Bacterial RNase P class A: a 348-nucleotide RNA from Clostridium sp. CAG:632. A search with the family's covariance model found it, with a score of 314 bits.
[Rfam]
Nucleotides: 348
Base pairs, nucleotide, nucleotide: 001344002343003342004341005340006339007338008337009336010335011333012312013311014310015309016308017307018306020048021047023045024044025043026042053331054330055329057328058327059326060325061324062218063217064216065215069249070248071247072246074214075213076212077211078210079093080092081091082090083089094108095106096105097104098103109209110208114207115206116203117202118201130149131148132145133144134143135142136141157175158174160172161171162170176198177196178195179194180193181192182191183190184189222269223268224267225266231260232259233258234257235256236255240254241253242252243251244250277294278293279292280291281290282289283288
Number, partner (000 for none) and nucleotide at each position: 001344u002343g003342a004341g005340u006339c007338g008337g009336a010335c011333a012312a013311g014310u015309g016308a017307u018306c019000g020048c021047g022000g023045c024044u025043g026042c027000a028000u029000g030000u031000g032000c033000c034000g035000a036000a037000a038000g039000g040000c041000c042026g043025c044024a045023g046000g047021u048020g049000a050000g051000g052000a053331a054330a055329g056000u057328c058327c059326g060325g061324g062218c063217u064216u065215c066000a067000u068000a069249g070248g071247g072246c073000a074214g075213g076212g077211u078210g079093c080092c081091g082090g083089a084000u085000a086000a087000c088000g089083u090082c091081c092080g093079g094108u095106g096105g097104a098103g099000g100000c101000g102000a103098c104097u105096c106095c107000c108094a109209g110208a111000c112000u113000a114207g115206u116203g117202c118201a119000a120000c121000a122000g123000a124000a125000a126000u127000a128000a129000a130149c131148c132145g133144c134143c135142a136141g137000a138000c139000u140000g141136c142135u143134g144133g145132u146000a147000a148131g149130g150000a151000u152000g153000g154000a155000a156000a157175g158174g159000c160172g161171a162170g163000g164000u165000a166000a167000g168000a169000g170162c171161u172160c173000a174158c175157c176198g177196c178195u179194u180193g181192a182191c183190u184189g185000g186000u187000a188000a189184c190183a191182g192181u193180c194179a195178a196177g197000g198176c199000u200000c201118u202117g203116u204000a205000a206115a207114c208110u209109c210078c211077a212076c213075c214074c215065g216064a217063a218062g219000c220000a221000a222269g223268a224267c225266c226000g227000a228000a229000c230000a231260a232259a233258a234257a235256g236255c237000a238000a239000u240254a241253c242252a243251g244250u245000u246072g247071c248070c249069c250244g251243c252242u253241g254240u255236g256235c257234u258233u259232u260231u261000g262000g263000g264000u265000a266225g267224g268223u269222u270000g271000c272000u273000c274000g275000a276000g277294c278293c279292g280291a281290u282289c283288g284000g285000c286000a287000a288283c289282g290281a291280u292279c293278g294277g295000a296000c297000u298000a299000g300000a301000u302000a303000g304000a305000u306018g307017a308016u309015c310014a311013c312012u313000c314000a315000a316000c317000g318000a319000c320000a321000u322000a323000a324061c325060c326059c327058g328057g329055c330054u331053u332000a333011u334000c335010g336009u337008c338007c339006g340005a341004c342003u343002c344001a345000u346000a347000a348000a